This 346-nucleotide RNA from Alkalidesulfovibrio alkalitolerans belongs to the Rfam family "Bacterial RNase P class A". Rfam's curators write: Ribonuclease P (RNase P) is a ubiquitous endoribonuclease, found in archaea, bacteria and eukarya as well as chloroplasts and mitochondria. NCBI's taxonomy places the organism under Bacteria, Pseudomonadati, Thermodesulfobacteriota, Alkalidesulfovibrio, Alkalidesulfovibrio alkalitolerans. The family's consensus secondary structure is taken from published work. It scores 299 bits against the family's covariance model.
[Rfam]
Nucleotides: 346
Base pairs, nucleotide, nucleotide: 001342002341003340004339005338006337007336008335009334010333011331013310014309015308016307017306018305020041021040023038024037025036026035027034028033046329047328048327050326051325052324053323054322055212056211057210058209062246063245064244065243067208068207069206070205071204072086073085074084075083076082087100088099089098090097091096101203102202106201107200108197109196110195123142124141125138126137127136128135129134150168151167152166153165154164155163170192171190172189173188174187175186176185177184178183216268217267218266219265226259227258228257229256230255231254238250239249240248241247275294276293279290280289281288282287
Number, partner (000 for none) and nucleotide at each position: 001342g002341g003340a004339g005338u006337u007336g008335g009334a010333c011331g012000a013310g014309c015308c016307g017306u018305c019000g020041c021040c022000g023038c024037g025036a026035a027034c028033c029000u030000u031000u032000c033028g034027g035026u036025u037024c038023g039000g040021g041020g042000a043000g044000g045000a046329a047328a048327g049000u050326c051325c052324g053323g054322g055212c056211u057210c058209c059000g060000c061000a062246g063245g064244g065243c066000a067208g068207g069206a070205c071204g072086c073085u074084g075083g076082g077000u078000a079000a080000c081000c082076c083075c084074c085073a086072g087100g088099g089098g090097g091096a092000g093000c094000g095000a096091u097090c098089c099088c100087c101203g102202g103000a104000u105000a106201g107200c108197g109196c110195c111000a112000c113000a114000g115000a116000a117000a118000g119000c120000a121000g122000a123142c124141c125138g126137c127136c128135c129134c130000g131000c132000g133000a134129g135128g136127g137126g138125u139000a140000a141124g142123g143000g144000u145000g146000a147000a148000a149000c150168g151167g152166u153165g154164g155163g156000g157000u158000a159000a160000g161000a162000g163155c164154c165153c166152a167151c168150c169000a170192g171190c172189g173188g174187c175186c176185g177184c178183g179000g180000c181000g182000a183178c184177g185176c186175g187174g188173c189172c190171g191000g192170c193000u194000c195110g196109g197108c198000a199000a200107g201106c202102c203101c204071c205070g206069u207068c208067c209058g210057g211056a212055g213000a214000a215000a216268g217267g218266c219265c220000a221000a222000a223000u224000a225000g226259g227258a228257a229256c230255g231254c232000g233000c234000u235000c236000g237000a238250g239249g240248c241247u242000g243065g244064c245063c246062c247241g248240g249239c250238c251000g252000a253000a254231g255230c256229g257228u258227u259226c260000g261000g262000g263000u264000a265219g266218g267217c268216u269000g270000c271000u272000u273000g274000a275294g276293g277000c278000a279290c280289g281288g282287a283000g284000c285000a286000a287282u288281c289280c290279g291000c292000a293276c294275c295000c296000u297000a298000g299000a300000g301000g302000a303000a304000u305018g306017g307016c308015g309014g310013c311000a312000u313000a314000g315000a316000a317000c318000a319000g320000a321000a322054c323053c324052c325051g326050g327048c328047u329046u330000a331011c332000u333010g334009u335008c336007c337006g338005a339004c340003u341002c342001c343000a344000g345000g346000a